Shown here is a 75-nucleotide RNA from Polypterus senegalus, a member of the family "mir-148/mir-152 microRNA precursor family". Its family is annotated with miRNA-mediated post-transcriptional gene silencing and RISC complex in the Gene Ontology. A reference for the family is Chen et al. (2005), "The developmental miRNA profiles of zebrafish as determined by small RNA cloning", Genes Dev. A search with the family's covariance model found it, with a score of 78 bits.

[Rfam]
RNA sequence: UCAGGCUCAAGUUCUGUGAUACACUCAGGCUCUGGGUUUGUAAGAAGUCAGUGCAUGACAGAACUUUUGCUUGGA
Number, nucleotide and partner (000 for none) at each position: 001u000002c000003a000004g071005g070006c069007u000008c000009a066010a065011g064012u063013u062014c061015u060016g059017u000018g000019a000020u000021a000022c053023a052024c051025u050026c000027a000028g049029g048030c047031u046032c000033u000034g000035g000036g000037u000038u000039u000040g000041u000042a000043a000044g000045a000046a031047g030048u029049c028050a025051g024052u023053g022054c000055a000056u000057g000058a000059c016060a015061g014062a013063a012064c011065u010066u009067u000068u000069g006070c005071u004072u000073g000074g000075a000